[Rfam]
RNA sequence: UGGUCUCCAACAUGGGGCUUGGAUACUGGGGGACAAUGACAGGGUCUAACGAUGGAGGAAAAAGGGUUGCGUACCUGCUGAAAUAAUUCGGAGACUCCGUGGGAGCCUGCCGCGACCUAGCCGAAGGUAAGUGGUCGUUUAAUCAUGGGGCAAGAAUUAAGCCAGCAUCAGAUUUAUGUGAUACAGUUAAGAGAAGCUCUACAGGCAAGAGGAGUGAAGGUUAAAACUGAGGAUUUAUUUCAGUUCUUUGAUUUUGUAAAGGGCAUUUGUCCUU
Numbered sequence: 001u002g003g004u005c006u007c008c009a010a011c012a013u014g015g016g017g018c019u020u021g022g023a024u025a026c027u028g029g030g031g032g033a034c035a036a037u038g039a040c041a042g043g044g045u046c047u048a049a050c051g052a053u054g055g056a057g058g059a060a061a062a063a064g065g066g067u068u069g070c071g072u073a074c075c076u077g078c079u080g081a082a083a084u085a086a087u088u089c090g091g092a093g094a095c096u097c098c099g100u101g102g103g104a105g106c107c108u109g110c111c112g113c114g115a116c117c118u119a120g121c122c123g124a125a126g127g128u129a130a131g132u133g134g135u136c137g138u139u140u141a142a143u144c145a146u147g148g149g150g151c152a153a154g155a156a157u158u159a160a161g162c163c164a165g166c167a168u169c170a171g172a173u174u175u176a177u178g179u180g181a182u183a184c185a186g187u188u189a190a191g192a193g194a195a196g197c198u199c200u201a202c203a204g205g206c207a208a209g210a211g212g213a214g215u216g217a218a219g220g221u222u223a224a225a226a227c228u229g230a231g232g233a234u235u236u237a238u239u240u241c242a243g244u245u246c247u248u249u250g251a252u253u254u255u256g257u258a259a260a261g262g263g264c265a266u267u268u269g270u271c272c273u274u
Stems, first nucleotide, its partner, number of pairs: 006031003013025002036053002085128001087126001088124002094118001098114005134151001136150001138149004158201002161197002209249007218236005259274006
Description
This 274-nucleotide RNA from Nannospalax galili belongs to the Rfam family "Mason-Pfizer monkey virus packaging signal". The family's consensus secondary structure was predicted with PFOLD. The family's RNA type in Rfam is cis-regulatory element. The organism belongs to Nannospalax, within Eukaryota.